[Rfam]
RNA sequence: GGGCAAUGAUGAGAUUGAAGAUUGUCAUGCACCACUCUGAGAUUCAUAUGUGCUGAAACCACUUGUUUCACCCAUUUUUCUCUGAGCUC
Numbered sequence: 001g002g003g004c005a006a007u008g009a010u011g012a013g014a015u016u017g018a019a020g021a022u023u024g025u026c027a028u029g030c031a032c033c034a035c036u037c038u039g040a041g042a043u044u045c046a047u048a049u050g051u052g053c054u055g056a057a058a059c060c061a062c063u064u065g066u067u068u069c070a071c072c073c074a075u076u077u078u079u080c081u082c083u084g085a086g087c088u089c
Base pairs, nucleotide, nucleotide: 001089002088003087004086

A member of the RNA family "Small nucleolar RNA Z221/R21b" from Carnegiea gigantea, 89 nucleotides long. By type it is a C/D-box small nucleolar RNA. Rfam 15.1 lists 588 matches to the family in 222 species. The family's consensus secondary structure was predicted with WAR. NCBI's taxonomy places the organism under Eukaryota, Embryophyta, Tracheophyta, Pentapetalae, Carnegiea. On this family, see Chen et al., Nucleic Acids Res 2003: "The high diversity of snoRNAs in plants: identification and comparative study of 120 snoRNA genes from Oryza sativa". It scores 60 bits against the family's covariance model.